[Rfam]
RNA sequence: GAAGGCUAGGGAGGCAAGAUGUCGGCAUAGCUGACUGUAUUUGAAUUGCGGCUGUGUCCCAUCGGGCCAUCUUAUGUCCUC
Numbered sequence: 001g002a003a004g005g006c007u008a009g010g011g012a013g014g015c016a017a018g019a020u021g022u023c024g025g026c027a028u029a030g031c032u033g034a035c036u037g038u039a040u041u042u043g044a045a046u047u048g049c050g051g052c053u054g055u056g057u058c059c060c061a062u063c064g065g066g067c068c069a070u071c072u073u074a075u076g077u078c079c080u081c
Stems, first nucleotide, its partner, number of pairs: 007074005013068003018063004024058008

A member of the RNA family "mir-31 microRNA precursor family" from Brassicogethes aeneus, 81 nucleotides long. The source organism's lineage runs through Eukaryota, Protostomia, Hexapoda, Cucujoidea and Brassicogethes. Rfam links the family to the GO terms gene silencing by miRNA and RISC complex. On this family, see Aravin et al., Dev Cell 2003: "The small RNA profile during Drosophila melanogaster development". It scores 59 bits against the family's covariance model.